RNA sequence: UUGGUUCCGGUUCACGUCCGAUCCGUCGCACAUCCGCGAUCGGGCGACCCGGCGACC
Numbered sequence: 001u002u003g004g005u006u007c008c009g010g011u012u013c014a015c016g017u018c019c020g021a022u023c024c025g026u027c028g029c030a031c032a033u034c035c036g037c038g039a040u041c042g043g044g045c046g047a048c049c050c051g052g053c054g055a056c057c
Stems, first nucleotide, its partner, number of pairs: 003057003007052004015046009

The family of this 57-nucleotide sequence from Salinispora arenicola is "L31-Actinobacteria ribosomal protein leader". The source organism's lineage runs through Bacteria, Bacillati, Micromonosporaceae, Salinispora and Salinispora arenicola. It is one of the family's seed sequences.